[Rfam]
RNA: sul1 RNA
Organism: Falsigemmobacter intermedius
RNA sequence: CAAGGACCCGGUGCGAGCCCGGGUGGCUCUUCCGGCCGCUGAUCCGCCGGACCCUA
Numbered sequence: 001c002a003a004g005g006a007c008c009c010g011g012u013g014c015g016a017g018c019c020c021g022g023g024u025g026g027c028u029c030u031u032c033c034g035g036c037c038g039c040u041g042a043u044c045c046g047c048c049g050g051a052c053c054c055u056a
Stems, first nucleotide, its partner, number of pairs: 006024006012017001031051006